RNA sequence: CCGCAACUUCGGUUCGGGCAAAUACCCGGCAAUGCCCUGACCGUUGAGGGGCUCCAGCGCAAGCUGGGGCCCCUUUCUUUUU
Dot-bracket structure: .........(((((.(((................))).)))))....((((((((.((....)).)))))))).........
Numbered sequence: 001c002c003g004c005a006a007c008u009u010c011g012g013u014u015c016g017g018g019c020a021a022a023u024a025c026c027c028g029g030c031a032a033u034g035c036c037c038u039g040a041c042c043g044u045u046g047a048g049g050g051g052c053u054c055c056a057g058c059g060c061a062a063g064c065u066g067g068g069g070c071c072c073c074u075u076u077c078u079u080u081u082u
Stems, first nucleotide, its partner, number of pairs: 010043005016037003048073008057064002